[Rfam]
RNA: Small nucleolar RNA snoR111
Organism: Juglans regia
RNA sequence: UUUAACAGAAAAGGGGAGAUAGCUCUAGGUCUCCUGUGUUCAGAAGAACAUUGAGGUAUAACAAAAAUCAAUGGCCGAGAUAUCGUUCAAUUGUCAUCUUUUUUUAUUGGCGAUUCGAUUGUUGCUCGUCCACAU
Numbered sequence: 001u002u003u004a005a006c007a008g009a010a011a012a013g014g015g016g017a018g019a020u021a022g023c024u025c026u027a028g029g030u031c032u033c034c035u036g037u038g039u040u041c042a043g044a045a046g047a048a049c050a051u052u053g054a055g056g057u058a059u060a061a062c063a064a065a066a067a068u069c070a071a072u073g074g075c076c077g078a079g080a081u082a083u084c085g086u087u088c089a090a091u092u093g094u095c096a097u098c099u100u101u102u103u104u105u106a107u108u109g110g111c112g113a114u115u116c117g118a119u120u121g122u123u124g125c126u127c128g129u130c131c132a133c134a135u
Base pairs, nucleotide, nucleotide: 006043008041009040010039013035014034015033016032017030073131074130076128077127078126079125082119083118084117085116090114091113092112093111094110095109096108